[Rfam]
This 70-nucleotide RNA from Erwinia sp. OLSSP12 belongs to the Rfam family "Fluoride riboswitch aptamer (crcB RNA motif)". The organism belongs to Erwinia, within Bacteria. Pairs were carried over by alignment from the consensus structure, which is taken from published work. Its family is annotated with positive regulation of gene expression and response to fluoride in the Gene Ontology.
RNA sequence: GGGUCAUAAGGUGAUGGCGUUCCACCUUCUCCAACCGCCUCGUUUUGGGGCUGAUGACGCCUGAUAUAAC
Numbered sequence: 001g002g003g004u005c006a007u008a009a010g011g012u013g014a015u016g017g018c019g020u021u022c023c024a025c026c027u028u029c030u031c032c033a034a035c036c037g038c039c040u041c042g043u044u045u046u047g048g049g050g051c052u053g054a055u056g057a058c059g060c061c062u063g064a065u066a067u068a069a070c
Stems, first nucleotide, its partner, number of pairs: 010026004016061006037051004